[Rfam]
RNA sequence: CUUGAUCGAACCCAACCACAACGGCCGGCCGGGUUCCCUGUCCUGUCCGUACGUGGUCAGCAGGGCCUGCACCUC
Dot-bracket structure: ...............((.....)).......(.....((...(((.(((....))).)))...))....).....
ASpks TB sRNA: a 75-nucleotide sequence from Micromonospora nigra.